[Rfam]
This 110-nucleotide RNA from Paenibacillus abyssi belongs to the Rfam family "epsC RNA". The base pairs follow the family's consensus structure, which is taken from published work. NCBI's taxonomy places the organism under Bacteria, Bacillota, Bacilli, Caryophanales, Paenibacillus. Rfam classes the family as a cis-regulatory element. A search with the family's covariance model found it, with a score of 95 bits.
RNA sequence: AGGUAAUGUCUACUGUACCUUUAUCACUGUAGGCACUCGGUCACACUGUGGGUCAAUCGACCUUAGACAUGAUUGUCAAGGGUGUGAUGUGAGGAAGGGUUAGAUGCCCA
Numbered sequence: 001a002g003g004u005a006a007u008g009u010c011u012a013c014u015g016u017a018c019c020u021u022u023a024u025c026a027c028u029g030u031a032g033g034c035a036c037u038c039g040g041u042c043a044c045a046c047u048g049u050g051g052g053u054c055a056a057u058c059g060a061c062c063u064u065a066g067a068c069a070u071g072a073u074u075g076u077c078a079a080g081g082g083u084g085u086g087a088u089g090u091g092a093g094g095a096a097g098g099g100u101u102a103g104a105u106g107c108c109c110a
Stems, first nucleotide, its partner, number of pairs: 001020004007035007036093004040088008050063005066077004097109004